[Rfam]
RNA sequence: GAUACGAUAUAGUGUGGUAGAAAGAUUUAGAUAUUUCUUUCUACCAUACUAUCUAGUAUUGUUAUUGUAGUGUAUAAAAUUGUAUUG
Numbered sequence: 001g002a003u004a005c006g007a008u009a010u011a012g013u014g015u016g017g018u019a020g021a022a023a024g025a026u027u028u029a030g031a032u033a034u035u036u037c038u039u040u041c042u043a044c045c046a047u048a049c050u051a052u053c054u055a056g057u058a059u060u061g062u063u064a065u066u067g068u069a070g071u072g073u074a075u076a077a078a079a080u081u082g083u084a085u086u087g
Base pairs, nucleotide, nucleotide: 006053007052010051011050012049013048014047015046016045017044018043019042020041021040022039023038024037025036
Dot-bracket structure: .....((..((((((((((((((((..........))))))))))))))))))..................................